[Rfam]
RNA sequence: AAAGUGCCUCGUAUUGCCAUAGUAGAAGCAUUCACAUCAUGGCUCCUGUCAGAUUCUUAAGAAUCUGCAAAUUCUGCU
Number, nucleotide and partner (000 for none) at each position: 001a000002a000003a000004g000005u000006g000007c000008c000009u000010c000011g000012u000013a000014u000015u000016g043017c042018c041019a000020u000021a078022g077023u076024a075025g074026a073027a072028g040029c000030a000031u000032u000033c000034a000035c000036a000037u000038c000039a000040u028041g018042g017043c016044u000045c000046c000047u000048g000049u000050c067051a066052g065053a064054u063055u062056c061057u000058u000059a000060a000061g056062a055063a054064u053065c052066u051067g050068c000069a000070a000071a000072u027073u026074c025075u024076g023077c022078u021

This 78-nucleotide RNA from Mauremys mutica belongs to the Rfam family "Mammalian CPEB3 ribozyme". Its family is annotated with RNA nuclease activity in the Gene Ontology. The mammalian CPEB3 ribozyme is a self cleaving RNA located in the second intron of the CPEB3 gene which belongs to a family of genes regulating messenger RNA polyadenylation. This ribozyme is highly conserved and found only in mammals. NCBI's taxonomy places the organism under Eukaryota, Gnathostomata, Sarcopterygii, Geoemydinae, Mauremys. The base pairs follow the family's consensus structure, which is taken from published work.